Rfam assigns this 139-nucleotide RNA from Phascolarctos cinereus to the family "ODC internal ribosome entry site (IRES)". A reference for the family is Pyronnet et al. (2005), "Alternative splicing facilitates internal ribosome entry on the ornithine decarboxylase mRNA", Cell Mol Life Sci. It scores 65 bits against the family's covariance model. The organism belongs to Phascolarctos, within Eukaryota.
[Rfam]
RNA sequence: AUAAUCAUAGCCUUUUAAAUUUCACAGGACUUUGUCUUCCUGGAGAAUCACUUUAGGUGAAAAGCUGGAAGAAGCUUGUCUUUAAAUUCUGUCUCUUACUUUUCCAUUUUGUCGCACUUUAGAGGGACACCAAGAAACU
Numbered sequence: 001a002u003a004a005u006c007a008u009a010g011c012c013u014u015u016u017a018a019a020u021u022u023c024a025c026a027g028g029a030c031u032u033u034g035u036c037u038u039c040c041u042g043g044a045g046a047a048u049c050a051c052u053u054u055a056g057g058u059g060a061a062a063a064g065c066u067g068g069a070a071g072a073a074g075c076u077u078g079u080c081u082u083u084a085a086a087u088u089c090u091g092u093c094u095c096u097u098a099c100u101u102u103u104c105c106a107u108u109u110u111g112u113c114g115c116a117c118u119u120u121a122g123a124g125g126g127a128c129a130c131c132a133a134g135a136a137a138c139u
Stems, first nucleotide, its partner, number of pairs: 005069002010065002013060002015056005021050001026041004074138001076137002079135004087127004